Rfam assigns this 101-nucleotide sequence from Allosphingosinicella indica to the family "Repression of heat shock gene expression (ROSE) element". Its family is annotated with regulation of translation and response to temperature stimulus in the Gene Ontology. By type it is an RNA thermoregulator. Pairs were carried over by alignment from the consensus structure, which is taken from published work.
[Rfam]
RNA sequence: CCGGGUGCCCCUCGGGGGCCUGGCUGGGACAGGAGGGCGCCGGCUCUCACCGGCGCAUCUCACGCCCAAAUUGCUUCAACAGGAGGAUUUGGAAAUGAGAA
Numbered sequence: 001c002c003g004g005g006u007g008c009c010c011c012u013c014g015g016g017g018g019c020c021u022g023g024c025u026g027g028g029a030c031a032g033g034a035g036g037g038c039g040c041c042g043g044c045u046c047u048c049a050c051c052g053g054c055g056c057a058u059c060u061c062a063c064g065c066c067c068a069a070a071u072u073g074c075u076u077c078a079a080c081a082g083g084a085g086g087a088u089u090u091g092g093a094a095a096u097g098a099g100a101a
Base pairs, nucleotide, nucleotide: 001023002022003021004020005019006018008017009016034058037056038055039054040053041052042051043050059099060098061097062096066092067091068090069089070088071087072086074085075084076083